The family of this 74-nucleotide RNA sequence from Corynebacterium renale is "tRNA". Its family is annotated with triplet codon-amino acid adaptor activity in the Gene Ontology.
RNA sequence: GCCCCCAUAGCUCAGUGGAUUAGAGCAACCGGCUUCUACCCGGUGUGUCGCGGGUUCGAAUCCUGCUGGGGGCG
Numbered sequence: 001g002c003c004c005c006c007a008u009a010g011c012u013c014a015g016u017g018g019a020u021u022a023g024a025g026c027a028a029c030c031g032g033c034u035u036c037u038a039c040c041c042g043g044u045g046u047g048u049c050g051c052g053g054g055u056u057c058g059a060a061u062c063c064u065g066c067u068g069g070g071g072g073c074g
Stems, first nucleotide, its partner, number of pairs: 001073007010026004028044005050066005
The organism belongs to Corynebacterium, within Bacteria. The match comes from Rfam's covariance-model search (67 bits).